[Rfam]
RNA sequence: UUUACCGCAAGAUAUGUUUGAUAUUCUUGGUUGUUUAUUACACAAUCGACCAGGAAUCAAACAUAU
Numbered sequence: 001u002u003u004a005c006c007g008c009a010a011g012a013u014a015u016g017u018u019u020g021a022u023a024u025u026c027u028u029g030g031u032u033g034u035u036u037a038u039u040a041c042a043c044a045a046u047c048g049a050c051c052a053g054g055a056a057u058c059a060a061a062c063a064u065a066u
Base pairs, nucleotide, nucleotide: 012066013065014064015063016062017061018060019059020058021057022056024054025053029051030050031049032048033047

mir-190 microRNA precursor family: a 66-nucleotide RNA sequence. Its family is annotated with miRNA-mediated post-transcriptional gene silencing and RISC complex in the Gene Ontology. Pairs were carried over by alignment from the consensus structure, which was predicted with RNAalifold. The match comes from Rfam's covariance-model search (60 bits). Clan: mir-50 clan. The literature on the family includes a 2006 paper in Nucleic Acids Res by Kloosterman et al., "Cloning and expression of new microRNAs from zebrafish".